RNA sequence: UGGCGGGGGAGCACUACAACGGGUGGAGCCUGCGGUUUAAUUGGAUUCAACGCCGGAAAUCUUACCGGGGGAGACAGCAGAAUGAAGGUCAGGCUGAAGACCUUACCAGAUCCGCUGAGAGGAAGUGCAUGGCCGUCGUCAGUUCGUACUGUGAAGCAUCCUGUUAAGUCAGGCAACGAGCGAGACCCGUGCCCACAGUUGCCAGCAUGCCCUUCGGGGCGAUGGGUACUUUGUGGGGACCGCCGCUGCUAAAGCGGAGGAAGGAGCGGGUUACGGUAGGUCAGUAUGCUCCGAAACUCCCGGGCUACACGCGGGCUACAAUGGUUGGGACAAUGGGAAUCAACACCGAAAGGUGAAGGCAAUCUCCUAAACCCAAUCGAAGUCCGGAUUGAGGGCUGCAACUCGCCCUCAUGAAGCUGGAAUCCGUAGUAAUCGCGUUUCAACACAGCGCGGUGAAUACGUCCCUGCUCCUUGCACACACCGCCCGUCAAACCAUCUGAGUGAGGUUUGGAUGAGGGUCUUCCUUAUGGGGGAUUCGAAUCUGGGCUUCGCAAGGAGGGUUAAGUCGUAACAAGGUAGCCGUAGGGGAAUCUGCGGCUG
Numbered sequence: 001u002g003g004c005g006g007g008g009g010a011g012c013a014c015u016a017c018a019a020c021g022g023g024u025g026g027a028g029c030c031u032g033c034g035g036u037u038u039a040a041u042u043g044g045a046u047u048c049a050a051c052g053c054c055g056g057a058a059a060u061c062u063u064a065c066c067g068g069g070g071g072a073g074a075c076a077g078c079a080g081a082a083u084g085a086a087g088g089u090c091a092g093g094c095u096g097a098a099g100a101c102c103u104u105a106c107c108a109g110a111u112c113c114g115c116u117g118a119g120a121g122g123a124a125g126u127g128c129a130u131g132g133c134c135g136u137c138g139u140c141a142g143u144u145c146g147u148a149c150u151g152u153g154a155a156g157c158a159u160c161c162u163g164u165u166a167a168g169u170c171a172g173g174c175a176a177c178g179a180g181c182g183a184g185a186c187c188c189g190u191g192c193c194c195a196c197a198g199u200u201g202c203c204a205g206c207a208u209g210c211c212c213u214u215c216g217g218g219g220c221g222a223u224g225g226g227u228a229c230u231u232u233g234u235g236g237g238g239a240c241c242g243c244c245g246c247u248g249c250u251a252a253a254g255c256g257g258a259g260g261a262a263g264g265a266g267c268g269g270g271u272u273a274c275g276g277u278a279g280g281u282c283a284g285u286a287u288g289c290u291c292c293g294a295a296a297c298u299c300c301c302g303g304g305c306u307a308c309a310c311g312c313g314g315g316c317u318a319c320a321a322u323g324g325u326u327g328g329g330a331c332a333a334u335g336g337g338a339a340u341c342a343a344c345a346c347c348g349a350a351a352g353g354u355g356a357a358g359g360c361a362a363u364c365u366c367c368u369a370a371a372c373c374c375a376a377u378c379g380a381a382g383u384c385c386g387g388a389u390u391g392a393g394g395g396c397u398g399c400a401a402c403u404c405g406c407c408c409u410c411a412u413g414a415a416g417c418u419g420g421a422a423u424c425c426g427u428a429g430u431a432a433u434c435g436c437g438u439u440u441c442a443a444c445a446c447a448g449c450g451c452g453g454u455g456a457a458u459a460c461g462u463c464c465c466u467g468c469u470c471c472u473u474g475c476a477c478a479c480a481c482c483g484c485c486c487g488u489c490a491a492a493c494c495a496u497c498u499g500a501g502u503g504a505g506g507u508u509u510g511g512a513u514g515a516g517g518g519u520c521u522u523c524c525u526u527a528u529g530g531g532g533g534a535u536u537c538g539a540a541u542c543u544g545g546g547c548u549u550c551g552c553a554a555g556g557a558g559g560g561u562u563a564a565g566u567c568g569u570a571a572c573a574a575g576g577u578a579g580c581c582g583u584a585g586g587g588g589a590a591u592c593u594g595c596g597g598c599u600g
Base pairs, nucleotide, nucleotide: 001478002477003475004474005473007472008471009470010469011468012467013466016462017461020426021425022424023423024422025319027317028316029315030314031313032312033311034310035308036307041056042055043054044053065303066302067301068300069299070298071297075117076116077115078114080111087107088106089105091103092102093101121292122291124290125289126288127287130286131285132281133280134279135277136276137275138274142181143180144179145178146177147176149156150155160173161172162171163170187269188268189267190266192237193236194235195234196233197232198231202226203225206224207223208222209220210219211218212217240260241259243257244256245255246254247253323378324377325376326375327374328373329372335366336365337364340359341358344355345354346353347352385416390411391410392409393408394407395406396405432454433453434452435451436450437449438448439447481575483572486568487567489565491562492561493560494559496557497556498555501552502551503550504549505548506547507546508545509544510543511542512541513540516537517536518535519534520533521532522531523530524529577600578599579598580597581596582595583594584593585592586591
Dot-bracket structure: (((((.(((((((..((..((((((.((((((((((....((((........))))........(((((((...((((.(......(((.(((.......))).)))...)..))))...((.((((..(((((((((...((((((.((....))...((((......))))..)))))).....((((.(((((((...((..(((((((....)))).)))))....)))))))..((.(((((.....))))).)).....))))....)))).)))...))))))))....)))))))...)).)))))))).)...(((((((.....(((..((..((((....))))..))....))).....)))))))......(....(((((((........)))))))....).....))))).....((((((((.......))))))))......))...)))))))))).))..(.(..((.(.((((.(((..(((((((((((((..(((((((((....)))))))))..)))))))))))))..))).))))..).))...)..).((((((((((....))))))))))
Background:
A member of the RNA family "Archaeal small subunit ribosomal RNA" from an uncultured archaeon, 600 nucleotides of a longer RNA. Pairs were carried over by alignment from the consensus structure, which is taken from published work.